[Rfam]
RNA sequence: AUUGCCCAGUUCUGGAUAUGAAGACAAUCAAGAAAAGAUUUGGUGUUCUUGAUUGUCUUCAUAUCUAGAACUGGGCAGU
Numbered sequence: 001a002u003u004g005c006c007c008a009g010u011u012c013u014g015g016a017u018a019u020g021a022a023g024a025c026a027a028u029c030a031a032g033a034a035a036a037g038a039u040u041u042g043g044u045g046u047u048c049u050u051g052a053u054u055g056u057c058u059u060c061a062u063a064u065c066u067a068g069a070a071c072u073g074g075g076c077a078g079u
Stems, first nucleotide, its partner, number of pairs: 001079034
RNA: mir-4782 microRNA precursor family